[Rfam]
RNA: Gammaprotebacteria rimP leader
RNA sequence: CGCAACCAAUAACAAAAAGGGUCCAGUGUUUUAAAAGCCCCGCAGCAGUCCGGGGCUUUUUACUAUGUGGCCUUUGCUGCGGCAAGUUUGGUGGAUUGACGCUAAGCUUGAGUGGGCAGUCAAUAACACUGGGCGGUUUCGCCCUUUUUUC
Numbered sequence: 001c002g003c004a005a006c007c008a009a010u011a012a013c014a015a016a017a018a019g020g021g022u023c024c025a026g027u028g029u030u031u032u033a034a035a036a037g038c039c040c041c042g043c044a045g046c047a048g049u050c051c052g053g054g055g056c057u058u059u060u061u062a063c064u065a066u067g068u069g070g071c072c073u074u075u076g077c078u079g080c081g082g083c084a085a086g087u088u089u090g091g092u093g094g095a096u097u098g099a100c101g102c103u104a105a106g107c108u109u110g111a112g113u114g115g116g117c118a119g120u121c122a123a124u125a126a127c128a129c130u131g132g133g134c135g136g137u138u139u140c141g142c143c144c145u146u147u148u149u150u151c
Base pairs, nucleotide, nucleotide: 034059035058036057037056038055039054040053041052042051131144132143133142134141